[Rfam]
RNA sequence: UGCGCAGUGCGUGUUUCAGCACGAUUUUCGGAAAGCUCACACCUUUCAGUCGUGCGGUGCGGAUGUAUUGCGCUGUCAUCACCUCAGUCAUCGAGGCGCGGGUCAUGCGGGCGAUAUAGCCCAUGCCGUAAAGUGCAAUGGUAAUCACCGGCAAGAAGAAGUUCUCGAAAUUGGCGUCA
Dot-bracket structure: ....((.(((((.(((..(((......(.((......(.(.(...(.(.(((((((((((((.....))))))))......((((.......))))))))).).)...).).)......)).)))).).)).))))).))....(.(.(.(..((((....))))......).)..).)
Background
Ruegeria cis52 sRNA: a 179-nucleotide sequence from Yoonia litorea. The family's RNA type in Rfam is small RNA. For this family Rfam cites "Experimental Identification of Small Non-Coding RNAs in the Model Marine Bacterium Ruegeria pomeroyi DSS-3" (Rivers et al., Front Microbiol, 2016). The organism belongs to Yoonia, within Bacteria.